Shown here is a 72-nucleotide RNA sequence from Equus caballus, a member of the family "Small nucleolar RNA SNORD113/SNORD114 family". It is annotated as a C/D-box small nucleolar RNA. The family has 59 seed sequences and 5,721 matches in Rfam 15.1. From the family's description: The imprinted human domain at 14q32 contains two clusters of tandemly repeated small nucleolar RNAs named 14q(I) and 14q(II) snoRNAs. These two clusters are named SNORD113 and SNORD114 respectively in the HGNC approved gene symbol nomenclature. The base pairs follow the family's consensus structure, which is taken from published work. Its Rfam clan is "SNORD74 clan". A search with the family's covariance model found it, with a score of 81 bits. A reference for the family is Cavaille et al. (2002), "Identification of tandemly-repeated C/D snoRNA genes at the imprinted human 14q32 domain reminiscent of those at the Prader-Willi/Angelman syndrome region", Hum Mol Genet.
[Rfam]
RNA sequence: UGGAUUGAUGGUGACUUCUGGUGGCGUAUGACUCGUAUAUGAUGAAUACGUGUCUGGAACUCUGAGGUCCAG
Numbered sequence: 001u002g003g004a005u006u007g008a009u010g011g012u013g014a015c016u017u018c019u020g021g022u023g024g025c026g027u028a029u030g031a032c033u034c035g036u037a038u039a040u041g042a043u044g045a046a047u048a049c050g051u052g053u054c055u056g057g058a059a060c061u062c063u064g065a066g067g068u069c070c071a072g
Stems, first nucleotide, its partner, number of pairs: 002070005
Dot-bracket structure: .(((((...........................................................)))))..